RNA sequence: CCCGUCCGGCUCGUGGACGCCCCUGACCGGGUUACGCCACUCCGGGCUACCCUGGCCGCGUGCGCCUUCCGUGGGAAGGCGCAAAGCCGACAGCCGUCGCACUCCAGGGAGCACCUUCAUG
Numbered sequence: 001c002c003c004g005u006c007c008g009g010c011u012c013g014u015g016g017a018c019g020c021c022c023c024u025g026a027c028c029g030g031g032u033u034a035c036g037c038c039a040c041u042c043c044g045g046g047c048u049a050c051c052c053u054g055g056c057c058g059c060g061u062g063c064g065c066c067u068u069c070c071g072u073g074g075g076a077a078g079g080c081g082c083a084a085a086g087c088c089g090a091c092a093g094c095c096g097u098c099g100c101a102c103u104c105c106a107g108g109g110a111g112c113a114c115c116u117u118c119a120u121g
Base pairs, nucleotide, nucleotide: 061083062082063081064080066078067077068076069075086100087099089098090097091096